[Rfam]
RNA sequence: UCUGUGCAGGCUCCUCCCAUCUCUUACAUCACUGCCCCUGUAGCAAAGCAGGGGCAGU
Numbered sequence: 001u002c003u004g005u006g007c008a009g010g011c012u013c014c015u016c017c018c019a020u021c022u023c024u025u026a027c028a029u030c031a032c033u034g035c036c037c038c039u040g041u042a043g044c045a046a047a048g049c050a051g052g053g054g055c056a057g058u
Stems, first nucleotide, its partner, number of pairs: 033056009
RNA: Caulobacter sRNA CC0196